[Rfam]
Rfam assigns this 66-nucleotide sequence from Orycteropus afer to the family "Selenocysteine insertion sequence 1". Its family is annotated with selenocysteine incorporation in the Gene Ontology. Pairs were carried over by alignment from the consensus structure, which is taken from published work. Rfam classes the family as a cis-regulatory element.

RNA sequence: CCGGCACCUAUGACGGCCUGCCUGCAAACCAGCCUGCUGGUGGGGCAGACCCGAGAACCCGGCGUG
Numbered sequence: 001c002c003g004g005c006a007c008c009u010a011u012g013a014c015g016g017c018c019u020g021c022c023u024g025c026a027a028a029c030c031a032g033c034c035u036g037c038u039g040g041u042g043g044g045g046c047a048g049a050c051c052c053g054a055g056a057a058c059c060c061g062g063c064g065u066g
Base pairs, nucleotide, nucleotide: 001066004063005062015051016050018048019047020046021045022044023043030039031038032037